This 39-nucleotide sequence belongs to the Rfam family "THF-II riboswitch (folE RNA)". On this family, see Xu et al., Nucleic Acids Res 2023: "Structural insights into translation regulation by the THF-II riboswitch". By type it is a cis-regulatory element.
[Rfam]
RNA sequence: CCGUUUAACUCGUCUCCUCUCCGAAGGAGACUACUGGAG
Dot-bracket structure: (.((.......(((((((......))))))).)).)...